[Rfam]
RNA sequence: AGUUUGUGAAUUUUUUCUUAAGAAAUAUUUCUGAACAUAUGAACUCCAUAGUGAUUUCAGUGCAUUACUGAGAGAAGCU
Numbered sequence: 001a002g003u004u005u006g007u008g009a010a011u012u013u014u015u016u017c018u019u020a021a022g023a024a025a026u027a028u029u030u031c032u033g034a035a036c037a038u039a040u041g042a043a044c045u046c047c048a049u050a051g052u053g054a055u056u057u058c059a060g061u062g063c064a065u066u067a068c069u070g071a072g073a074g075a076a077g078c079u
Stems, first nucleotide, its partner, number of pairs: 002078004007073001

The record is a 79-nucleotide RNA sequence from Vireo altiloquus, which matches "Small nucleolar RNA SNORD72" in Rfam. Pairs were carried over by alignment from the consensus structure. The family's RNA type in Rfam is C/D-box small nucleolar RNA. snoRNA HBII-240 belongs to the CD family of snoRNAs. It is the human orthologue of the mouse MBII-240 and is predicted to guide 2'O-ribose methylation of the large 28S rRNA at residue U4590. The literature on the family includes a 2001 paper in EMBO J by Huttenhofer et al., "RNomics: an experimental approach that identifies 201 candidates for novel, small, non-messenger RNAs in mouse". Its family is annotated with nucleolus and RNA processing in the Gene Ontology. Lineage of the source: Eukaryota > Aves > Vireonidae > Vireoninae > Vireo.